[Rfam]
RNA sequence: UGCUAGGAGAGUUUGAUCCUGGCUCAGGACGAACGCUGGCGGCGUGCUUAACACAUGCAAGUCGGACGGUUAGUAGGUGAAAGCUUGCUGGAUCCUACUGAUAGUGGCGGACGGGUGAGUAACACGUGAGAACCUGACCCAAGCAGGGGGACAACUGCUGGAAACGGCAGCUAAUACCCCAUAGGCGGGAGACCGUUAAAGGAGUGAUCCGGCUUGGGAGGGGCUCGCGGCCUAUCAGCUAGUAGGUGUGGUAAUGGCGCACCUAGGCGAUGACGGGUAGCCGGCCUGAGAGGGUGUACGGCCACACUGGAACUGAGAUACGGUCCAGACUCCUACGGGAGGCAGCAGUGGGGAAUAUUGGGCAAUGGGGGCAACCCUGACCCAGCGACGCCGCGUGGGGGAAGAAGUCCUUCGGGAUGUAAACCUCUGUUGUGUGGGAAGAAGGAUGUGACGGUACCACACGAGGAAGCCCCGGCAAACUACGUGCCAGCAGCCGCGGUAAUACGUAGGGGGCGAGCGUUGUCCGGAAUUACUG
Numbered sequence: 001u002g003c004u005a006g007g008a009g010a011g012u013u014u015g016a017u018c019c020u021g022g023c024u025c026a027g028g029a030c031g032a033a034c035g036c037u038g039g040c041g042g043c044g045u046g047c048u049u050a051a052c053a054c055a056u057g058c059a060a061g062u063c064g065g066a067c068g069g070u071u072a073g074u075a076g077g078u079g080a081a082a083g084c085u086u087g088c089u090g091g092a093u094c095c096u097a098c099u100g101a102u103a104g105u106g107g108c109g110g111a112c113g114g115g116u117g118a119g120u121a122a123c124a125c126g127u128g129a130g131a132a133c134c135u136g137a138c139c140c141a142a143g144c145a146g147g148g149g150g151a152c153a154a155c156u157g158c159u160g161g162a163a164a165c166g167g168c169a170g171c172u173a174a175u176a177c178c179c180c181a182u183a184g185g186c187g188g189g190a191g192a193c194c195g196u197u198a199a200a201g202g203a204g205u206g207a208u209c210c211g212g213c214u215u216g217g218g219a220g221g222g223g224c225u226c227g228c229g230g231c232c233u234a235u236c237a238g239c240u241a242g243u244a245g246g247u248g249u250g251g252u253a254a255u256g257g258c259g260c261a262c263c264u265a266g267g268c269g270a271u272g273a274c275g276g277g278u279a280g281c282c283g284g285c286c287u288g289a290g291a292g293g294g295u296g297u298a299c300g301g302c303c304a305c306a307c308u309g310g311a312a313c314u315g316a317g318a319u320a321c322g323g324u325c326c327a328g329a330c331u332c333c334u335a336c337g338g339g340a341g342g343c344a345g346c347a348g349u350g351g352g353g354a355a356u357a358u359u360g361g362g363c364a365a366u367g368g369g370g371g372c373a374a375c376c377c378u379g380a381c382c383c384a385g386c387g388a389c390g391c392c393g394c395g396u397g398g399g400g401g402a403a404g405a406a407g408u409c410c411u412u413c414g415g416g417a418u419g420u421a422a423a424c425c426u427c428u429g430u431u432g433u434g435u436g437g438g439a440a441g442a443a444g445g446a447u448g449u450g451a452c453g454g455u456a457c458c459a460c461a462c463g464a465g466g467a468a469g470c471c472c473c474g475g476c477a478a479a480c481u482a483c484g485u486g487c488c489a490g491c492a493g494c495c496g497c498g499g500u501a502a503u504a505c506g507u508a509g510g511g512g513g514c515g516a517g518c519g520u521u522g523u524c525c526g527g528a529a530u531u532a533c534u535g
Stems, first nucleotide, its partner, number of pairs: 009025005027525004032521006039394006045387002047352001052350003056347003061108003066105002069102002072089007115305003125229006133222002138218007146180004155170006186195003201210003231277003238268003243265008280302004284295004307328005330341004358384001360383003366379005397427004407418004431466001432462006441452001469514005480509005490497002
RNA: Bacterial small subunit ribosomal RNA, nucleotides 1 to 535
Organism: Thermanaerovibrio acidaminovorans